[Rfam]
The family of this 54-nucleotide sequence from Castanea mollissima is "Plastid-atpF group II-D1 intron". Rfam links the family to the GO term Group II intron splicing. Rfam's curators write: Plastid atpF is a non-coding RNA (ncRNA) recognised in plastids. The match comes from Rfam's covariance-model search (58 bits). The family's consensus secondary structure was predicted with LocARNA.
RNA sequence: UUUUUUUUUUUGUGAUAUAGAACAUUCAUGUCCAUAAAAUGAUUUGAACCAUUU
Numbered sequence: 001u002u003u004u005u006u007u008u009u010u011u012g013u014g015a016u017a018u019a020g021a022a023c024a025u026u027c028a029u030g031u032c033c034a035u036a037a038a039a040u041g042a043u044u045u046g047a048a049c050c051a052u053u054u
Stems, first nucleotide, its partner, number of pairs: 011034002014032005
Lineage of the source: Eukaryota > Embryophyta > Mesangiospermae > fabids > Castanea.